[Rfam]
RNA sequence: AACUAUAGUAACGCCACAAGCCUACUAUGUUUGAUCUUUACGAUCAGCUUUCUUAUCCUGCUUCGGCAAUACAAAACUUAGAUUUGAUGUAUUCAGAGUAUUGAAUAUAGAAACGCAUUGUCAUA
Numbered sequence: 001a002a003c004u005a006u007a008g009u010a011a012c013g014c015c016a017c018a019a020g021c022c023u024a025c026u027a028u029g030u031u032u033g034a035u036c037u038u039u040a041c042g043a044u045c046a047g048c049u050u051u052c053u054u055a056u057c058c059u060g061c062u063u064c065g066g067c068a069a070u071a072c073a074a075a076a077c078u079u080a081g082a083u084u085u086g087a088u089g090u091a092u093u094c095a096g097a098g099u100a101u102u103g104a105a106u107a108u109a110g111a112a113a114c115g116c117a118u119u120g121u122c123a124u125a
Base pairs, nucleotide, nucleotide: 001031002030004029005028006027007026008025009024010023013021014020059068060067061066085123086122087121088120092117094115101109
RNA: Bacteriophage Diversity-Generating Retroelement RNA